[Rfam]
RNA sequence: GGCCCAAAUUUGAAGUAGAGUAAGUUAGUAUUGUCAGCUGGUCCUACUAAUCUACUCUACUUCAAGUUUGUGUCC
Numbered sequence: 001g002g003c004c005c006a007a008a009u010u011u012g013a014a015g016u017a018g019a020g021u022a023a024g025u026u027a028g029u030a031u032u033g034u035c036a037g038c039u040g041g042u043c044c045u046a047c048u049a050a051u052c053u054a055c056u057c058u059a060c061u062u063c064a065a066g067u068u069u070g071u072g073u074c075c
Base pairs, nucleotide, nucleotide: 001074002073003072005070006069007068008067009066011064012063013062014061015060016059017058018057019056020055021054022053025050026049027048028047029046030045033042034041035040